[Rfam]
RNA: ALIL pseudoknot
RNA sequence: GGCUUUCUUUGCGGCGGAGCUCGACCGCCCGUCUCGCUGAUCGUCGCCUUCAUCGAUCAGCACAAGCUCGUGCAGGGGGUCGAGCCGAUCUGCCGUGUCCUCACCGAGGCCGGCGUCAAGAUCGCCCCG
Numbered sequence: 001g002g003c004u005u006u007c008u009u010u011g012c013g014g015c016g017g018a019g020c021u022c023g024a025c026c027g028c029c030c031g032u033c034u035c036g037c038u039g040a041u042c043g044u045c046g047c048c049u050u051c052a053u054c055g056a057u058c059a060g061c062a063c064a065a066g067c068u069c070g071u072g073c074a075g076g077g078g079g080u081c082g083a084g085c086c087g088a089u090c091u092g093c094c095g096u097g098u099c100c101u102c103a104c105c106g107a108g109g110c111c112g113g114c115g116u117c118a119a120g121a122u123c124g125c126c127c128c129g
Stems, first nucleotide, its partner, number of pairs: 013029005076128004086124002089121003